[Rfam]
RNA sequence: UACUGUUUGCCAACACUCUGGUGCCAAAUCUUAUCUUAUGAUAUGCUAUAUUUGGUUCCUAUUUUGGUGCAAACUAGAAUCUUAGCUGACUACUCACCAUCACUCUCCUUUUCAAUGAGGGUGAUCUGGUCCAUUUCAUUAGCUCAAAU
Numbered sequence: 001u002a003c004u005g006u007u008u009g010c011c012a013a014c015a016c017u018c019u020g021g022u023g024c025c026a027a028a029u030c031u032u033a034u035c036u037u038a039u040g041a042u043a044u045g046c047u048a049u050a051u052u053u054g055g056u057u058c059c060u061a062u063u064u065u066g067g068u069g070c071a072a073a074c075u076a077g078a079a080u081c082u083u084a085g086c087u088g089a090c091u092a093c094u095c096a097c098c099a100u101c102a103c104u105c106u107c108c109u110u111u112u113c114a115a116u117g118a119g120g121g122u123g124a125u126c127u128g129g130u131c132c133a134u135u136u137c138a139u140u141a142g143c144u145c146a147a148a149u
Base pairs, nucleotide, nucleotide: 007072008071009070020059021058023056024055026053027052028051029050084144085143086142087141097129098128099127100124101123102122104121105120106119